[Rfam]
RNA sequence: GGACGAUGACGACUAAAUUGAUAUUGGUCUCGUUCGUCGUAAUGGUGUUCGAAUGAUACACCUUGCCGACCAACCUGAUAUAUCACCACCCAUAAACUGAGUCC
Dot-bracket structure: ((((..............................................(.......).........................................))))

Rfam assigns this 104-nucleotide sequence from Olea europaea to the family "Small nucleolar RNA Z43". Rfam links the family to the GO terms RNA processing and nucleolus. For this family Rfam cites "The high diversity of snoRNAs in plants: identification and comparative study of 120 snoRNA genes from Oryza sativa" (Chen et al., Nucleic Acids Res, 2003). NCBI's taxonomy places the organism under Eukaryota, Euphyllophyta, Gunneridae, Pentapetalae, Olea europaea. Rfam 15.1 lists 859 matches to the family in 240 species.